[Rfam]
RNA sequence: GUGGCACUCAAACUGUGGGGGCACUUUUCUGGGCUAGGAUGGAAGUGCCGCCACGUUUUGAGUGUUGC
Numbered sequence: 001g002u003g004g005c006a007c008u009c010a011a012a013c014u015g016u017g018g019g020g021g022c023a024c025u026u027u028u029c030u031g032g033g034c035u036a037g038g039a040u041g042g043a044a045g046u047g048c049c050g051c052c053a054c055g056u057u058u059u060g061a062g063u064g065u066u067g068c
Stems, first nucleotide, its partner, number of pairs: 004065009015054004020049006027043003
RNA: mir-290 microRNA precursor family